A member of the RNA family "Glycine riboswitch aptamer" from Rubrivivax albus, 112 nucleotides long. Taxonomically the source falls in Rubrivivax (Bacteria, Betaproteobacteria, Burkholderiales, Sphaerotilaceae). From the family's description: This family represents the bacterial glycine riboswitch. It scores 59 bits against the family's covariance model. The pairing is the family consensus, mapped onto this sequence.
RNA sequence: GUUGACCUCACUGGAGAGAGGCGCCGGCAUCAACGCCGUCGCCCACCGAAGGGGCAAGGGCCGUCACCGGGCGGACCCGAAUCUCUCAGGUAAAGCGGACAGCGAGGGCCCC
Numbered sequence: 001g002u003u004g005a006c007c008u009c010a011c012u013g014g015a016g017a018g019a020g021g022c023g024c025c026g027g028c029a030u031c032a033a034c035g036c037c038g039u040c041g042c043c044c045a046c047c048g049a050a051g052g053g054g055c056a057a058g059g060g061c062c063g064u065c066a067c068c069g070g071g072c073g074g075a076c077c078c079g080a081a082u083c084u085c086u087c088a089g090g091u092a093a094a095g096c097g098g099a100c101a102g103c104g105a106g107g108g109c110c111c112c
Base pairs, nucleotide, nucleotide: 006107007106008105009104011102012101013100020043021042022041023040045091046090047089048087049086052085053084054083058078059077